[Rfam]
RNA sequence: GGAAGCUGAAUUCAGAUGGUGCCAUAGAGUAUUUUAUGGCAUCUAGCACCAUUUGAAAUCAGUGUUCC
Numbered sequence: 001g002g003a004a005g006c007u008g009a010a011u012u013c014a015g016a017u018g019g020u021g022c023c024a025u026a027g028a029g030u031a032u033u034u035u036a037u038g039g040c041a042u043c044u045a046g047c048a049c050c051a052u053u054u055g056a057a058a059u060c061a062g063u064g065u066u067c068c
Stems, first nucleotide, its partner, number of pairs: 001068004005063005011057004016052006025045004
Shown here is a 68-nucleotide RNA sequence from Danio rerio, a member of the family "mir-29 microRNA precursor family". The source organism's lineage runs through Eukaryota, Chordata, Teleostei, Danioninae and Danio. Rfam describes the family as follows. This family represents the microRNA (miRNA) precursors mir-29. The sequence is in the family's curated seed alignment.